The family of this 85-nucleotide RNA sequence from Dipodomys ordii is "mir-322 microRNA precursor family". Its family is annotated with RISC complex and miRNA-mediated post-transcriptional gene silencing in the Gene Ontology. On this family, see Kasashima et al., Biochem Biophys Res Commun 2004: "Altered expression profiles of microRNAs during TPA-induced differentiation of HL-60 cells". Taxonomically the source falls in Dipodomys (Eukaryota, Eumetazoa, Craniata, Rodentia). Pairs were carried over by alignment from the consensus structure, which was predicted with RNAalifold.
RNA sequence: AGAGGGAAUGCAGCAGCAAUUCAUGUUUUGGAGUACCUUGAAACGGUUCAAAACGUGAAGCGCUGCUAUAUUCCUUCGUGAGGAA
Numbered sequence: 001a002g003a004g005g006g007a008a009u010g011c012a013g014c015a016g017c018a019a020u021u022c023a024u025g026u027u028u029u030g031g032a033g034u035a036c037c038u039u040g041a042a043a044c045g046g047u048u049c050a051a052a053a054c055g056u057g058a059a060g061c062g063c064u065g066c067u068a069u070a071u072u073c074c075u076u077c078g079u080g081a082g083g084a085a
Base pairs, nucleotide, nucleotide: 002077003076004075005074006073007072009070010069013066014065015064016063017062020059021058022057023056024055025054026053027052028051029050030049031048032047034045